The record is a 218-nucleotide sequence, which matches "HNH endonuclease-associated RNA and ORF (HEARO) RNA" in Rfam.

RNA sequence: GUCAACUGCCAACUACCCUAAAGGGUAGUGGCUUGUAAGAAAUUGCAAGUCGGUUGAAUAGCCUAAGUCUUAAAUGACUACGAUUAUUAAGAAUAUAUAGGUACUUCAAGAUACUUCUCUAGUCUUGAACACUACGCUUUAACAUUAAACAUUUCUGAUGGUAGGAAAAGUGUGUUAAAGAUACAAAACCUUUUUAAUCAUUGGCGAAGAGAACUUAC
Numbered sequence: 001g002u003c004a005a006c007u008g009c010c011a012a013c014u015a016c017c018c019u020a021a022a023g024g025g026u027a028g029u030g031g032c033u034u035g036u037a038a039g040a041a042a043u044u045g046c047a048a049g050u051c052g053g054u055u056g057a058a059u060a061g062c063c064u065a066a067g068u069c070u071u072a073a074a075u076g077a078c079u080a081c082g083a084u085u086a087u088u089a090a091g092a093a094u095a096u097a098u099a100g101g102u103a104c105u106u107c108a109a110g111a112u113a114c115u116u117c118u119c120u121a122g123u124c125u126u127g128a129a130c131a132c133u134a135c136g137c138u139u140u141a142a143c144a145u146u147a148a149a150c151a152u153u154u155c156u157g158a159u160g161g162u163a164g165g166a167a168a169a170g171u172g173u174g175u176u177a178a179a180g181a182u183a184c185a186a187a188a189c190c191u192u193u194u195u196a197a198u199c200a201u202u203g204g205c206g207a208a209g210a211g212a213a214c215u216u217a218c
Stems, first nucleotide, its partner, number of pairs: 001059002003056006010031001013028002017024002032049007061205003065201001066079004082199005089192003101135002105129008115213006137180009149171002152168004156163002
On this family, see Weinberg et al., Nature 2009: "Exceptional structured noncoding RNAs revealed by bacterial metagenome analysis".